[Rfam]
Rfam assigns this 66-nucleotide sequence from Haliotis rufescens to the family "mir-1990 microRNA precursor family".
Rfam's curators put it in the seed alignment.
RNA sequence: ACGUGCAGUAAGUUGAUGGGGUCCCAGGUUGUCUAUAAUCCCGGGACUACGUCAACUACUGCAAGG
Numbered sequence: 001a002c003g004u005g006c007a008g009u010a011a012g013u014u015g016a017u018g019g020g021g022u023c024c025c026a027g028g029u030u031g032u033c034u035a036u037a038a039u040c041c042c043g044g045g046a047c048u049a050c051g052u053c054a055a056c057u058a059c060u061g062c063a064a065g066g
Stems, first nucleotide, its partner, number of pairs: 004063003008060001011057008020048006027041002
Record summary: Pairs were carried over by alignment from the consensus structure, which was predicted with RNAalifold.